[Rfam]
RNA sequence: GAACAAGAUAGAGGCGCAAGUUGCAAUAGUAGACUUUCUGGAGGAUGGACAAUACCGUUGAAGGGGAGGGAAAGGGUAACUUGCCGAAGUGAUAAAUCCAUUGUCUCGGUUUAUUUGCUGGUUUUGCAUUGAAGAAAUGCAAGAUUGUCAGAAUCAGAUUAGGAUUCUGGAGGGCUAUCUAAACG
Numbered sequence: 001g002a003a004c005a006a007g008a009u010a011g012a013g014g015c016g017c018a019a020g021u022u023g024c025a026a027u028a029g030u031a032g033a034c035u036u037u038c039u040g041g042a043g044g045a046u047g048g049a050c051a052a053u054a055c056c057g058u059u060g061a062a063g064g065g066g067a068g069g070g071a072a073a074g075g076g077u078a079a080c081u082u083g084c085c086g087a088a089g090u091g092a093u094a095a096a097u098c099c100a101u102u103g104u105c106u107c108g109g110u111u112u113a114u115u116u117g118c119u120g121g122u123u124u125u126g127c128a129u130u131g132a133a134g135a136a137a138u139g140c141a142a143g144a145u146u147g148u149c150a151g152a153a154u155c156a157g158a159u160u161a162g163g164a165u166u167c168u169g170g171a172g173g174g175c176u177a178u179c180u181a182a183a184c185g
Base pairs, nucleotide, nucleotide: 006180007179008178009177010176011175016084017083018082019081020080021079022078023077024076034068035067036066037065038064039063088119089118090117091116092115095112096111098109099108120146121145122144123143124142125141126140127139128138129137130136148170149169150168151167152166153165154164
A member of the RNA family "Lysine riboswitch aptamer" from Ureibacillus sinduriensis, 185 nucleotides long. The base pairs follow the family's consensus structure, which is taken from published work.